RNA sequence: UCCUGUAUCGAAAGUGACUGUGGAGCCACCGUCUCCAGGCCAUUGAUACUACAGGAAGAGCAAGUGAAAGACUUUCCCGUGUUUGCUGGACUCUGUUCCUGACAAACCCUGGAUCUUUCACACA
Numbered sequence: 001u002c003c004u005g006u007a008u009c010g011a012a013a014g015u016g017a018c019u020g021u022g023g024a025g026c027c028a029c030c031g032u033c034u035c036c037a038g039g040c041c042a043u044u045g046a047u048a049c050u051a052c053a054g055g056a057a058g059a060g061c062a063a064g065u066g067a068a069a070g071a072c073u074u075u076c077c078c079g080u081g082u083u084u085g086c087u088g089g090a091c092u093c094u095g096u097u098c099c100u101g102a103c104a105a106a107c108c109c110u111g112g113a114u115c116u117u118u119c120a121c122a123c124a
Base pairs, nucleotide, nucleotide: 001056002055003054004053005052006051007050013044014043015042016041018039019038022036023035024034025033064121065120066119067118068117069116070115071114081107082106083105084104085103086101088099089098090097
Dot-bracket structure: (((((((.....((((.((..((((.......)))).)).)))).....))))))).......((((((((.........((((((.(((......))).).)))))......))))))))...